Ruegeria cis2 sRNA: a 153-nucleotide RNA from Sulfitobacter aestuariivivens. A reference for the family is Rivers et al. (2016), "Experimental Identification of Small Non-Coding RNAs in the Model Marine Bacterium Ruegeria pomeroyi DSS-3", Front Microbiol. The base pairs follow the family's consensus structure, which was predicted with RNAfold. The organism belongs to Sulfitobacter, within Bacteria.
[Rfam]
RNA sequence: GUUGCUGUAGCGCGGAUAGUAGUUGAGAAACACAAAUCCCCGCGCCUGAUCGAUGCAGUGAAACAGCGGGUUCCAGUCAAACAUCUUGAGCAUAUAUCCGGGCAUCAUGUUGGCCACGAACAUUUUGCCAGAUGCAAUCAUGUUUGCGCGCUG
Numbered sequence: 001g002u003u004g005c006u007g008u009a010g011c012g013c014g015g016a017u018a019g020u021a022g023u024u025g026a027g028a029a030a031c032a033c034a035a036a037u038c039c040c041c042g043c044g045c046c047u048g049a050u051c052g053a054u055g056c057a058g059u060g061a062a063a064c065a066g067c068g069g070g071u072u073c074c075a076g077u078c079a080a081a082c083a084u085c086u087u088g089a090g091c092a093u094a095u096a097u098c099c100g101g102g103c104a105u106c107a108u109g110u111u112g113g114c115c116a117c118g119a120a121c122a123u124u125u126u127g128c129c130a131g132a133u134g135c136a137a138u139c140a141u142g143u144u145u146g147c148g149c150g151c152u153g
Stems, first nucleotide, its partner, number of pairs: 002035003006032003011027001013025003037057001039055001041052002064153005070082003087146007098134001102129001103127002107123002110119003